This 401-nucleotide RNA sequence from Salipiger aestuarii belongs to the Rfam family "Bacterial RNase P class A".
RNA sequence: GUGGAGGGCCGGGCGGCCGCCGCCGUUGCAAGACGGGGGAGGAAAGUCCGGACUCGCCGAAACACCGGUGCCGGGUAACGCCCGGGCAGGGCAACCUGACGGAAAGCGCCACAGAAAACAAACCGCCGCCCCUUGGGGCGGUCAGGGUGAAACGGUGGGGUAAGAGCCCACCGCGCCCCCGGCAACGGGGGUGGCAUGGCAAGCCCCACCGGGAGCAAUGCCAAAUAGGGACCUCGCGCGGGGCAUGAUCCCGUCAGGGAUAUCGCCGCAGGGCAGUUUCGGCCCGAGAGGUCCGGGUUGGCAGCUUGAGCCCGUGGGCAACCGCGGGCCUAGAGGAAUGGUCGCCGAACGGCGGGGCAACCCGCCGGGAACAAAAUCCGGCUUACAGGCCCUCCACGCAA
Numbered sequence: 001g002u003g004g005a006g007g008g009c010c011g012g013g014c015g016g017c018c019g020c021c022g023c024c025g026u027u028g029c030a031a032g033a034c035g036g037g038g039g040a041g042g043a044a045a046g047u048c049c050g051g052a053c054u055c056g057c058c059g060a061a062a063c064a065c066c067g068g069u070g071c072c073g074g075g076u077a078a079c080g081c082c083c084g085g086g087c088a089g090g091g092c093a094a095c096c097u098g099a100c101g102g103a104a105a106g107c108g109c110c111a112c113a114g115a116a117a118a119c120a121a122a123c124c125g126c127c128g129c130c131c132c133u134u135g136g137g138g139c140g141g142u143c144a145g146g147g148u149g150a151a152a153c154g155g156u157g158g159g160g161u162a163a164g165a166g167c168c169c170a171c172c173g174c175g176c177c178c179c180c181g182g183c184a185a186c187g188g189g190g191g192u193g194g195c196a197u198g199g200c201a202a203g204c205c206c207c208a209c210c211g212g213g214a215g216c217a218a219u220g221c222c223a224a225a226u227a228g229g230g231a232c233c234u235c236g237c238g239c240g241g242g243g244c245a246u247g248a249u250c251c252c253g254u255c256a257g258g259g260a261u262a263u264c265g266c267c268g269c270a271g272g273g274c275a276g277u278u279u280c281g282g283c284c285c286g287a288g289a290g291g292u293c294c295g296g297g298u299u300g301g302c303a304g305c306u307u308g309a310g311c312c313c314g315u316g317g318g319c320a321a322c323c324g325c326g327g328g329c330c331u332a333g334a335g336g337a338a339u340g341g342u343c344g345c346c347g348a349a350c351g352g353c354g355g356g357g358c359a360a361c362c363c364g365c366c367g368g369g370a371a372c373a374a375a376a377u378c379c380g381g382c383u384u385a386c387a388g389g390c391c392c393u394c395c396a397c398g399c400a401a
Stems, first nucleotide, its partner, number of pairs: 001397010011386001012346007020039002023036005044384003048381005053215003061279002066211005071085005086100001087098004101206002106204002108200003123146002125142007154172006173195001174193008219303004229294006271285004310329008
Dot-bracket structure: ((((((((((((((((((.((.(((((....))))).))....[[[.[[[[[(((.....[[...((((((((((.....)))))(((((....)))).)((...(((((............(((((((((....)))))))..)).......((((((.......))))))(((((((((....)))))))).)..)))..))))))))).)))...((((......((((((....................................((((...]]..))))...)))))).....))))......((((((((....))))))))..........)))))))..............................]]]]]]]].).))))))))))....
The organism belongs to Salipiger, within Bacteria. Pairs were carried over by alignment from the consensus structure, which is taken from published work.